RNA: Bacterial large subunit ribosomal RNA, nucleotides 9 to 551
Organism: Trichormus azollae
RNA sequence: UAAUAAGGGCUAAUGGUGGAUACCUAGGCACACAGAGGCGAAGAAGGACGUGGUUACCGACGAAAUGCUCCGGGGAGUUGGAAGCAAACUAUGAGCCGGAGAUAUCCGAAUGGGGCAACCCUAAAUACUACCUGCUGAAUAUAUAGGCAGGAAAGAGCCAACCCAGCGAAUUGAAACAUCUUAGUAGCUGGAGGAAGAGAAAUCAAACUAGAGAUUCCCUCAGUAGUGGUGAGCGAAAGGGGAAGAGCCUAAACCAAUUGGUUUACUGAUUGGGGUAGUGGGACAGCGAUAUCGAAUCUAGAGACUAGACGAAGCAGCUAAAUACUGCACCAGAGAAGGUGAAAGUCCUGUAGUCGAAAGUUAAAGGAUAGUAGCUGCAUCCCGAGUAGCAUGGGGCACGAGGAAUCCCAUGUGAAUCAGCGAGGACCACCUCGUAAGGCUAAAUACUACUGUGUGACCGAUAGCGAACAAGUACCGCGAGGGAAAGGUGAAAAGAACCCCGGAAGGGGAGUGAAAUAGAACAUGAAACCAUUAGCUUACAAG
Number, nucleotide and partner (000 for none) at each position: 001u000002a000003a000004u000005a000006a000007g538008g537009g536010c535011u534012a533013a532014u531015g530016g529017u000018g000019g000020a000021u000022a000023c488024c487025u000026a000027g459028g458029c456030a455031c454032a453033c452034a451035g450036a448037g447038g158039c157040g000041a000042a000043g000044a000045a000046g107047g106048a105049c062050g061051u060052g000053g000054u000055u000056a000057c000058c000059g000060a051061c050062g049063a000064a000065a000066u000067g000068c101069u100070c099071c098072g097073g096074g000075g000076a000077g089078u088079u087080g000081g000082a000083a000084g000085c000086a000087a079088a078089c077090u000091a000092u000093g000094a000095g000096c073097c072098g071099g070100a069101g068102a000103u000104a000105u048106c047107c046108g000109a000110a000111u000112g121113g120114g119115g000116c000117a000118a000119c114120c113121c112122u000123a000124a000125a000126u000127a000128c155129u154130a000131c151132c150133u149134g148135c147136u146137g000138a000139a000140u000141a000142u000143a000144u000145a000146g136147g135148c134149a133150g132151g131152a000153a000154a129155g128156a000157g039158c038159c000160a000161a000162c193163c191164c190165a189166g188167c187168g000169a000170a000171u000172u000173g180174a179175a000176a000177c000178a000179u174180c173181u000182u000183a000184g000185u000186a000187g167188c166189u165190g164191g163192a000193g162194g000195a000196a000197g000198a000199g000200a000201a000202a000203u212204c211205a000206a000207a000208c000209u000210a000211g204212a203213g000214a000215u444216u243217c242218c241219c240220u239221c000222a000223g000224u000225a000226g234227u233228g000229g000230u000231g000232a000233g227234c226235g000236a000237a000238a000239g220240g219241g218242g217243a216244a000245g000246a441247g440248c439249c438250u000251a000252a000253a000254c273255c272256a271257a270258u269259u268260g267261g000262u000263u000264u000265a000266c000267u260268g259269a258270u257271u256272g255273g254274g000275g000276u000277a000278g000279u000280g383281g382282g381283a000284c377285a376286g375287c374288g000289a000290u000291a000292u000293c000294g000295a000296a369297u368298c367299u366300a000301g000302a000303g362304a361305c360306u359307a000308g355309a354310c353311g000312a000313a000314g328315c327316a326317g325318c000319u000320a000321a000322a000323u000324a000325c317326u316327g315328c314329a000330c000331c335332a000333g000334a000335g331336a000337a349338g348339g347340u000341g000342a000343a000344a000345g000346u000347c339348c338349u337350g000351u000352a000353g310354u309355c308356g000357a000358a000359a306360g305361u304362u303363a000364a000365a000366g299367g298368a297369u296370a000371g000372u000373a000374g287375c286376u285377g284378c000379a000380u000381c282382c281383c280384g000385a000386g000387u000388a000389g413390c412391a411392u410393g409394g408395g407396g406397c000398a000399c000400g000401a000402g000403g000404a000405a000406u396407c395408c394409c393410a392411u391412g390413u389414g000415a000416a000417u000418c000419a000420g435421c434422g433423a432424g431425g000426a000427c000428c000429a000430c000431c424432u423433c422434g421435u420436a000437a000438g249439g248440c247441u246442a000443a000444a215445u000446a000447c037448u036449a000450c035451u034452g033453u032454g031455u030456g029457a000458c028459c027460g000461a000462u000463a000464g000465c000466g000467a000468a000469c000470a000471a000472g000473u000474a000475c482476c481477g000478c000479g000480a000481g476482g475483g000484a000485a000486a000487g024488g023489u000490g000491a000492a000493a000494a000495g000496a000497a000498c509499c508500c507501c506502g000503g000504a000505a000506g501507g500508g499509g498510a000511g000512u000513g000514a000515a000516a000517u000518a000519g000520a000521a000522c000523a000524u000525g000526a000527a000528a000529c016530c015531a014532u013533u012534a011535g010536c009537u008538u007539a000540c000541a000542a000543g000